[Rfam]
RNA: Guanidine-I riboswitch aptamer
Organism: Paenibacillus whitsoniae
RNA sequence: AUAUAUGUUUUCUAGGGUUCCGCGAGACGUGCCGGCCGGGCGUCUUGGUCUGGUCCGAGAGAAAACGCACAGCCUGCCUGUGUUCACGGAGGGACAAAAGCCCGGGAGAU
Numbered sequence: 001a002u003a004u005a006u007g008u009u010u011u012c013u014a015g016g017g018u019u020c021c022g023c024g025a026g027a028c029g030u031g032c033c034g035g036c037c038g039g040g041c042g043u044c045u046u047g048g049u050c051u052g053g054u055c056c057g058a059g060a061g062a063a064a065a066c067g068c069a070c071a072g073c074c075u076g077c078c079u080g081u082g083u084u085c086a087c088g089g090a091g092g093g094a095c096a097a098a099a100g101c102c103c104g105g106g107a108g109a110u
Base pairs, nucleotide, nucleotide: 007066008065009064010063011062012061015056016055020053021052022050023047024046025045026044027043028042029041030040067083068082069081070080071079072078085105087108091103092102093101